Source information
The family of this 192-nucleotide RNA sequence from Ralstonia pickettii is "RT-15 RNA". It is annotated as a small RNA. The family's consensus secondary structure is taken from published work.
RNA sequence: CGUCGCCCGCUGCACCACGGUCAAGGCCGUGAUACCUGUGCGAAUUAUUGAUCUGGUCGCGCCGCUGCUCCACAAGAGCACCGCCAUGCGCAGAACAGAAACCAGCUGCCGGUGUGCGGCAAGGUCUGGCGCAGUUGCUGCACUGAUCGGCUAACGCCUUCGGUGAGGUGAUGUAGAUAGCGCGAUACGACG
Number, nucleotide and partner (000 for none) at each position: 001c000002g000003u000004c042005g041006c040007c000008c000009g000010c000011u000012g035013c000014a033015c000016c031017a030018c029019g028020g027021u026022c000023a000024a000025g000026g021027c020028c019029g018030u017031g016032a000033u014034a000035c012036c000037u000038g000039u000040g006041c005042g004043a000044a000045u000046u000047a000048u000049u000050g000051a000052u000053c000054u000055g000056g000057u185058c184059g183060c182061g181062c180063c083064g082065c000066u080067g079068c078069u077070c076071c000072a000073c000074a000075a000076g070077a069078g068079c067080a066081c000082c064083g063084c000085c000086a000087u133088g132089c131090g130091c129092a000093g000094a000095a000096c128097a127098g126099a125100a000101a000102c124103c123104a000105g120106c119107u118108g117109c116110c000111g000112g000113u000114g000115u000116g109117c108118g107119g106120c105121a000122a000123g103124g102125u099126c098127u097128g096129g091130c090131g089132c088133a087134g000135u171136u170137g000138c168139u167140g000141c165142a164143c163144u162145g161146a160147u000148c000149g158150g157151c156152u000153a000154a000155c000156g151157c150158c149159u000160u146161c145162g144163g143164u142165g141166a000167g139168g138169u000170g136171a135172u000173g000174u000175a000176g000177a000178u000179a000180g062181c061182g060183c059184g058185a057186u000187a000188c000189g000190a000191c000192g000
The source organism's lineage runs through Bacteria, Pseudomonadati, Pseudomonadota, Burkholderiaceae and Ralstonia pickettii.